[Rfam]
RNA: mir-2807 microRNA precursor family
Organism: Bombyx mori
RNA sequence: UUAACUCAAAUUUGUAUGAAGUUAGAACGUUUGCCUGCGUUUGCCGCUAGGGGCGCUGUACCAACUGCAUACGAAUUAAAAAAA
Numbered sequence: 001u002u003a004a005c006u007c008a009a010a011u012u013u014g015u016a017u018g019a020a021g022u023u024a025g026a027a028c029g030u031u032u033g034c035c036u037g038c039g040u041u042u043g044c045c046g047c048u049a050g051g052g053g054c055g056c057u058g059u060a061c062c063a064a065c066u067g068c069a070u071a072c073g074a075a076u077u078a079a080a081a082a083a084a
Base pairs, nucleotide, nucleotide: 009077010076011075012074013073014072015071016070018068020066021065022064023063025061027059028058029057034052035051036050039047040046